[Rfam]
Nucleotides: 084
Base pairs, nucleotide, nucleotide: 010025011024012023013022016075017074018073019072020071021070054065055064056063057062
Number, partner (000 for none) and nucleotide at each position: 001000u002000c003000g004000g005000c006000u007000g008000a009000c010025g011024g012023g013022a014000a015000u016075g017074g018073g019072g020071u021070c022013u023012c024011c025010c026000g027000a028000g029000c030000g031000u032000u033000u034000c035000c036000u037000c038000u039000a040000c041000g042000g043000a044000a045000a046000g047000c048000u049000g050000a051000a052000c053000c054065g055064c056063c057062g058000g059000u060000u061000c062057c063056g064055g065054c066000u067000g068000a069000u070021g071020g072019c073018u074017c075016c076000u077000g078000u079000u080000c081000a082000c083000a084000a
The family of this 84-nucleotide sequence from Kaistia hirudinis is "Fluoride riboswitch aptamer (crcB RNA motif)". The organism belongs to Kaistia, within Bacteria. The match comes from Rfam's covariance-model search (45 bits).